[Rfam]
Source information:
Small nucleolar RNA SNORA73 family: a 222-nucleotide sequence from Acipenser ruthenus. U17 (SNORA73A and SNORA73B) also known as E1 belongs to the H/ACA class of small nucleolar RNAs (snoRNAs). Vertebrate U17 is intron-encoded and ranges in length from 200-230 nucleotides, longer than most snoRNAs. It is one of the most abundant snoRNAs in human cells and is essential for the cleavage of pre-rRNA within the 5' external transcribed spacer (ETS). Its Rfam clan is "snR30-U17 clan". It is annotated as an H/ACA-box small nucleolar RNA. Lineage of the source: Eukaryota > Opisthokonta > Metazoa > Craniata > Acipenser.
Nucleotides: 222
Stems, first nucleotide, its partner, number of pairs: 001109007008044005014036002019028003047101004056094004060088001062086002065081001153214007170200006179187003
Number, partner (000 for none) and nucleotide at each position: 001109c002108c003107a004106a005105c006104g007103u008044g009043g010042a011041u012040a013000u014036c015035c016000u017000g018000u019028g020027a021026g022000g023000u024000u025000g026021c027020u028019c029000u030000c031000a032000u033000g034000u035015g036014g037000c038000u039000c040012u041011g042010u043009c044008c045000g046000u047101g048100u049099g050098g051000c052000g053000u054000a055000a056094g057093g058092g059091a060088g061000c062086g063085u064000a065081g066000c067000g068000c069000u070000u071000u072000u073000c074000a075000g076000u077000g078000c079000c080000a081065u082000g083000a084000c085063g086062u087000a088060c089000a090000g091059u092058c093057c094056c095000g096000u097000u098050c099049c100048a101047c102000g103007a104006c105005g106004u107003u108002g109001g110000a111000g112000a113000g114000c115000a116000a117000g118000c119000u120000u121000g122000u123000c124000c125000c126000c127000g128000g129000c130000c131000u132000u133000c134000g135000g136000g137000c138000u139000g140000c141000u142000g143000a144000g145000g146000a147000c148000a149000g150000c151000g152000u153214c154213c155212u156211g157210u158209a159208u160000a161000u162000u163000c164000c165000u166000a167000c168000a169000u170200c171199u172198u173197u174196c175195c176000a177000g178000a179187g180186c181185c182000c183000a184000c185181g186180g187179c188000a189000g190000u191000u192000a193000c194000u195175g196174g197173g198172g199171a200170g201000g202000u203000a204000a205000a206000c207000c208159a209158u210157g211156c212155a213154g214153g215000g216000c217000a218000c219000a220000u221000a222000u